[Rfam]
RNA: Soft rot Enterobacteriaceae Fwd 6 3'UTR
Organism: Candidatus Symbiopectobacterium sp. Dall1.0
RNA sequence: UUUCUGUAAUUAAACUACAGUAUUGGGUGACUUGCUCCACUUUGUGUGACCCAUAGCCAUUUUUUAUGAAACUAAACAACAAAAAAACCUUUGUUCUGGCGAAAAAAUAGGGUAG
Numbered sequence: 001u002u003u004c005u006g007u008a009a010u011u012a013a014a015c016u017a018c019a020g021u022a023u024u025g026g027g028u029g030a031c032u033u034g035c036u037c038c039a040c041u042u043u044g045u046g047u048g049a050c051c052c053a054u055a056g057c058c059a060u061u062u063u064u065u066a067u068g069a070a071a072c073u074a075a076a077c078a079a080c081a082a083a084a085a086a087a088c089c090u091u092u093g094u095u096c097u098g099g100c101g102a103a104a105a106a107a108u109a110g111g112g113u114a115g
Base pairs, nucleotide, nucleotide: 004020005019006018007017034077036075041071042070043069046067047066048065053062078095079094080093081092082091083090096112097111